[Rfam]
RNA: RAGATH-21 RNA
RNA sequence: AGCACACGUCCUUAAAAGAAACGGCUCCGGCCGGAGGUUGAAAAGCGGGCGCAAUUCCCGGCGUGUGCA
Numbered sequence: 001a002g003c004a005c006a007c008g009u010c011c012u013u014a015a016a017a018g019a020a021a022c023g024g025c026u027c028c029g030g031c032c033g034g035a036g037g038u039u040g041a042a043a044a045g046c047g048g049g050c051g052c053a054a055u056u057c058c059c060g061g062c063g064u065g066u067g068c069a
Base pairs, nucleotide, nucleotide: 002068003067004066005065006064007063008062009061010060022033023032024031025030037046038045039044047059048058049057